[Rfam]
RNA sequence: CAUAAAGUGAACUAGGGUUCCGACAGCGCAAUGAAAAUGUGGCUGUGCUGUGACCGAGAGUUUACGGCUCAAUUGAGCUACACGGAGGGAUAAAAGCCCGGGAGGU
Numbered sequence: 001c002a003u004a005a006a007g008u009g010a011a012c013u014a015g016g017g018u019u020c021c022g023a024c025a026g027c028g029c030a031a032u033g034a035a036a037a038u039g040u041g042g043c044u045g046u047g048c049u050g051u052g053a054c055c056g057a058g059a060g061u062u063u064a065c066g067g068c069u070c071a072a073u074u075g076a077g078c079u080a081c082a083c084g085g086a087g088g089g090a091u092a093a094a095a096g097c098c099c100g101g102g103a104g105g106u
Stems, first nucleotide, its partner, number of pairs: 007065006015055002020052001021050001022048001023046005066079005081101001083104001087099003
Record summary:
The record is a 106-nucleotide sequence from Acinetobacter gerneri, which matches "Guanidine-I riboswitch aptamer" in Rfam. Pairs were carried over by alignment from the consensus structure. Its family is annotated with regulation of gene expression in the Gene Ontology. The organism belongs to Acinetobacter gerneri, within Bacteria.